[Rfam]
RNA sequence: UACGUGCUCCGGGGUCAGUGAGAUUCUGAACCGGCGGUGAAAGUCCGCGAGCCCGAGAUGAGAGAAGCACCGCCCAGGCGGUGCGGAUCGCGACGAAGGCUGAUCUGGUGCAAUUCCAGAACCGACGGUAAUGGCGAGGCCCAGGCCUCCCUCAGUCCGGAUGAGAGGCGCACGGG
Numbered sequence: 001u002a003c004g005u006g007c008u009c010c011g012g013g014g015u016c017a018g019u020g021a022g023a024u025u026c027u028g029a030a031c032c033g034g035c036g037g038u039g040a041a042a043g044u045c046c047g048c049g050a051g052c053c054c055g056a057g058a059u060g061a062g063a064g065a066a067g068c069a070c071c072g073c074c075c076a077g078g079c080g081g082u083g084c085g086g087a088u089c090g091c092g093a094c095g096a097a098g099g100c101u102g103a104u105c106u107g108g109u110g111c112a113a114u115u116c117c118a119g120a121a122c123c124g125a126c127g128g129u130a131a132u133g134g135c136g137a138g139g140c141c142c143a144g145g146c147c148u149c150c151c152u153c154a155g156u157c158c159g160g161a162u163g164a165g166a167g168g169c170g171c172a173c174g175g176g
Stems, first nucleotide, its partner, number of pairs: 003174005009168002016028003032124002034048004043122002051100003104120005126159003